[Rfam]
RNA sequence: CUCGCCCGGUCAGGAGAGAGCCCCGGAGGUGGGGCCGCCGAAGGCGCAGGGCCCAUUGAACGAGGCCCGAACGCUCAGGCAAAAGGACUGACGAGGCGCC
Numbered sequence: 001c002u003c004g005c006c007c008g009g010u011c012a013g014g015a016g017a018g019a020g021c022c023c024c025g026g027a028g029g030u031g032g033g034g035c036c037g038c039c040g041a042a043g044g045c046g047c048a049g050g051g052c053c054c055a056u057u058g059a060a061c062g063a064g065g066c067c068c069g070a071a072c073g074c075u076c077a078g079g080c081a082a083a084a085g086g087a088c089u090g091a092c093g094a095g096g097c098g099c100c
Base pairs, nucleotide, nucleotide: 006095009092010091011090012089013088020035021034022033023032037080038079039078040076041075044074045073046072050068051067
Shown here is a 100-nucleotide sequence from Variovorax sp. PBS-H4, a member of the family "Glycine riboswitch aptamer". It scores 52 bits against the family's covariance model. The organism belongs to Variovorax, within Bacteria. Its family is annotated with glycine biosynthetic process in the Gene Ontology.